RNA sequence: AAACCUCAAAACAACGAAAGCCCUACCUCUCUUUCGUCCUUACGGCUCCGAUGACCGUGCCAGUAUGAAUCGGGAUAUCCAAAAACAA
Numbered sequence: 001a002a003a004c005c006u007c008a009a010a011a012c013a014a015c016g017a018a019a020g021c022c023c024u025a026c027c028u029c030u031c032u033u034u035c036g037u038c039c040u041u042a043c044g045g046c047u048c049c050g051a052u053g054a055c056c057g058u059g060c061c062a063g064u065a066u067g068a069a070u071c072g073g074g075a076u077a078u079c080c081a082a083a084a085a086c087a088a
Base pairs, nucleotide, nucleotide: 034068035067036066039063040062041059042058043057044056045055047053
RNA: BsrC
Organism: Bacillus sp. AFS018417